[Rfam]
RNA: 7SK RNA
RNA sequence: GAAUGUCAGGGUGAUCUGUUUGUGACUUCUGGCACUUAUUGCAAGGGUUGAUACAACUGAUUUGGGUAGCUGUGCAGAUGACCCCUCUCUCCCUUAAUGUUCUGGGUGUGUCCCUCUCAAAGCUCUGAGCUCAGCUGAUAGGACAACCUUCCUCAUAGAGAUGGUAUCAUUCAUUGGUCAAGUGUAUAUGGUAGUUGCACUCCAUUUCUAGCAAAUCCAAACAAGCUCAAGGUCCAUUUGUGCAGGAAUGUAAGGUAGUCAAGCUUCCAAGACUGAAGACACAGCUGAGUGAGGAGCUGCAUGCAGCAGUCUGCCACUGCUU
Dot-bracket structure: (.(..(.((((.(....(.....(.(.((((...(((((((...............).)))...)..)).....)))).).)..)..)..)))).)....).).......((.((((..(.((.....)))..)..(...(((......))))....)))..)).............................(((...((.(.((.(.......(....(((((...........)))))...)....).)).).))...)))......................(((.(.((.(((((.....)))))...)).)..)))